RNA: Glycine riboswitch aptamer
RNA sequence: ACAGCAGUAUCGGGAGAACCAGCAUCGCUGGUGCCGAAGGAGCAACCGCCCCGGAAACUCUCAGGCCAAGGGACCUUUACUGUCAU
Dot-bracket structure: .....((((..((.....((((.....)))).(((((..(((...((.....))...))))).))).......))..)))).....
Numbered sequence: 001a002c003a004g005c006a007g008u009a010u011c012g013g014g015a016g017a018a019c020c021a022g023c024a025u026c027g028c029u030g031g032u033g034c035c036g037a038a039g040g041a042g043c044a045a046c047c048g049c050c051c052c053g054g055a056a057a058c059u060c061u062c063a064g065g066c067c068a069a070g071g072g073a074c075c076u077u078u079a080c081u082g083u084c085a086u
Stems, first nucleotide, its partner, number of pairs: 006081004012075002019031004033066003036062002040060003046054002